[Rfam]
RNA: FMN riboswitch aptamer (RFN element)
RNA sequence: ACUUGUUCUCAGGGCGGGGUGGAAGUCCCCACCGGCGGUGAUCCGGCAAUGCCGGUGAGCCCGCGAGCGCCCCUCCGGGUGGAGGGGGUCCAGCAGACCCGGUGCGAAUCCGGGGCCGACGGUAACAGUCCGGAAUGAAGAGAAUGAGG
Numbered sequence: 001a002c003u004u005g006u007u008c009u010c011a012g013g014g015c016g017g018g019g020u021g022g023a024a025g026u027c028c029c030c031a032c033c034g035g036c037g038g039u040g041a042u043c044c045g046g047c048a049a050u051g052c053c054g055g056u057g058a059g060c061c062c063g064c065g066a067g068c069g070c071c072c073c074u075c076c077g078g079g080u081g082g083a084g085g086g087g088g089u090c091c092a093g094c095a096g097a098c099c100c101g102g103u104g105c106g107a108a109u110c111c112g113g114g115g116c117c118g119a120c121g122g123u124a125a126c127a128g129u130c131c132g133g134a135a136u137g138a139a140g141a142g143a144a145u146g147a148g149g
Base pairs, nucleotide, nucleotide: 003147004146005145006144007143008142009141010140017029018028019027031129032128033118034117035064036063037062038061059116060115067094068093098114099113100112101111102110120132121131122130